Xanthomonadaceae sRNA asX1: a 115-nucleotide RNA sequence from Luteimonas granuli. The family's RNA type in Rfam is small RNA. It scores 80 bits against the family's covariance model. The source organism's lineage runs through Bacteria, Pseudomonadati, Pseudomonadota, Lysobacterales and Luteimonas.
RNA sequence: CACCCGGGAUGGCAAACGCCAAGGGGGGCGUGGCCGGAGAUUGGAACAGGGCUGGCCAAGCGCAUUCCGGGGAAGCGAAGGGGCCGAACGUCGGGGGACGUUCGGCCCCGUUUUU
Numbered sequence: 001c002a003c004c005c006g007g008g009a010u011g012g013c014a015a016a017c018g019c020c021a022a023g024g025g026g027g028g029c030g031u032g033g034c035c036g037g038a039g040a041u042u043g044g045a046a047c048a049g050g051g052c053u054g055g056c057c058a059a060g061c062g063c064a065u066u067c068c069g070g071g072g073a074a075g076c077g078a079a080g081g082g083g084c085c086g087a088a089c090g091u092c093g094g095g096g097g098a099c100g101u102u103c104g105g106c107c108c109c110g111u112u113u114u115u
Stems, first nucleotide, its partner, number of pairs: 003071009012061002016031005032057006042049001080109013
On this family, see Schmidtke et al., Nucleic Acids Res 2011: "Genome-wide transcriptome analysis of the plant pathogen Xanthomonas identifies sRNAs with putative virulence functions".